[Rfam]
RNA sequence: ACAACAACAAUAACAAACGCUUAACCCCACAAUAAAAACAAGACGUAUCGACUCCAGCACAAUAAAAACAAGACAGCGGAGGCGCAGCUAACUGAUUCUUUUGGAGAGGAGUUGCCCUUGGGGCCAGCCCCACAGCCAGGCAGAGAACAACAAAAACUGCUUCCAAGCAGCGCCAGAACUGGUUGGGUCACGGAAUGAUCAAGGCACCAUCAGCGUCCAAAGCAAUCCGUUUGCUAUUAACCCUCGAUUGGAGGGCAUGUCCAGAGGCGAAAGCCUGCUGGAGCGGGUCUAACAACAAAAACAUCAAGCCCAACACAAUAAAAACAAAGCACGCACCAAUUUUGGGGGGGAGCUUCGGCUCCCCCAGUAGCUUUACCUCCCUCAGCUUUGCCUCCUUU
Numbered sequence: 001a002c003a004a005c006a007a008c009a010a011u012a013a014c015a016a017a018c019g020c021u022u023a024a025c026c027c028c029a030c031a032a033u034a035a036a037a038a039c040a041a042g043a044c045g046u047a048u049c050g051a052c053u054c055c056a057g058c059a060c061a062a063u064a065a066a067a068a069c070a071a072g073a074c075a076g077c078g079g080a081g082g083c084g085c086a087g088c089u090a091a092c093u094g095a096u097u098c099u100u101u102u103g104g105a106g107a108g109g110a111g112u113u114g115c116c117c118u119u120g121g122g123g124c125c126a127g128c129c130c131c132a133c134a135g136c137c138a139g140g141c142a143g144a145g146a147a148c149a150a151c152a153a154a155a156a157c158u159g160c161u162u163c164c165a166a167g168c169a170g171c172g173c174c175a176g177a178a179c180u181g182g183u184u185g186g187g188u189c190a191c192g193g194a195a196u197g198a199u200c201a202a203g204g205c206a207c208c209a210u211c212a213g214c215g216u217c218c219a220a221a222g223c224a225a226u227c228c229g230u231u232u233g234c235u236a237u238u239a240a241c242c243c244u245c246g247a248u249u250g251g252a253g254g255g256c257a258u259g260u261c262c263a264g265a266g267g268c269g270a271a272a273g274c275c276u277g278c279u280g281g282a283g284c285g286g287g288u289c290u291a292a293c294a295a296c297a298a299a300a301a302c303a304u305c306a307a308g309c310c311c312a313a314c315a316c317a318a319u320a321a322a323a324a325c326a327a328a329g330c331a332c333g334c335a336c337c338a339a340u341u342u343u344g345g346g347g348g349g350g351a352g353c354u355u356c357g358g359c360u361c362c363c364c365c366a367g368u369a370g371c372u373u374u375a376c377c378u379c380c381c382u383c384a385g386c387u388u389u390g391c392c393u394c395c396u397u398u
Base pairs, nucleotide, nucleotide: 049084050083052081053080054079055078099222100221101220102219103218113215114214115213133185134184135183136182137181138180139179157170158169159168160167161166241255242254243253244252280381281380283378286311287310289308327373328372329371330370345368346365347364348363349362350361351360352359353358
Shown here is a 398-nucleotide RNA from Metapseudomonas resinovorans, a member of the family "Pseudomonas sRNA CrcZ". The family's RNA type in Rfam is small RNA. The base pairs follow the family's consensus structure, which was predicted with WAR. A search with the family's covariance model found it, with a score of 338 bits. For this family Rfam cites "Identification of 17 Pseudomonas aeruginosa sRNAs and prediction of sRNA-encoding genes in 10 diverse pathogens using the bioinformatic tool sRNAPredict2" (Livny et al., Nucleic Acids Res, 2006). Rfam 15.1 lists 127 matches to the family in 96 species. Its family is annotated with carbon catabolite repression of transcription in the Gene Ontology. The organism belongs to Metapseudomonas resinovorans, within Bacteria.